[Rfam]
RNA sequence: GGACUUUGAUGAUUUCAGUGUGAAAGGUCUCAUUCGUCGUAAUUGGCGUUUACAGGCCUUGACGACCAUCCACCCAUAUUCUGAGUCU
Numbered sequence: 001g002g003a004c005u006u007u008g009a010u011g012a013u014u015u016c017a018g019u020g021u022g023a024a025a026g027g028u029c030u031c032a033u034u035c036g037u038c039g040u041a042a043u044u045g046g047c048g049u050u051u052a053c054a055g056g057c058c059u060u061g062a063c064g065a066c067c068a069u070c071c072a073c074c075c076a077u078a079u080u081c082u083g084a085g086u087c088u
Stems, first nucleotide, its partner, number of pairs: 001088004048060001050055001
A member of the RNA family "Small nucleolar RNA Z43" from Populus tomentosa, 88 nucleotides long. A reference for the family is Chen et al. (2003), "The high diversity of snoRNAs in plants: identification and comparative study of 120 snoRNA genes from Oryza sativa", Nucleic Acids Res. The source organism's lineage runs through Eukaryota, eudicotyledons, Gunneridae, Malpighiales and Populus. It is annotated as a C/D-box small nucleolar RNA.